[Rfam]
mir-3132 microRNA precursor family: a 75-nucleotide RNA from Homo sapiens. Pairs were carried over by alignment from the consensus structure, which was predicted with RNAalifold. The organism belongs to Homo, within Eukaryota. Its family is annotated with RISC complex and miRNA-mediated post-transcriptional gene silencing in the Gene Ontology. Rfam's curators put it in the seed alignment.
RNA sequence: GGUGGGAUGGGUAGAGAAGGAGCUCAGAGGACGGUGCGCCUUGUUUCCCUUGAGCCCUCCCUCUCUCAUCCCACC
Numbered sequence: 001g002g003u004g005g006g007a008u009g010g011g012u013a014g015a016g017a018a019g020g021a022g023c024u025c026a027g028a029g030g031a032c033g034g035u036g037c038g039c040c041u042u043g044u045u046u047c048c049c050u051u052g053a054g055c056c057c058u059c060c061c062u063c064u065c066u067c068a069u070c071c072c073a074c075c
Stems, first nucleotide, its partner, number of pairs: 001075011013064004018058003022055006029048003033040002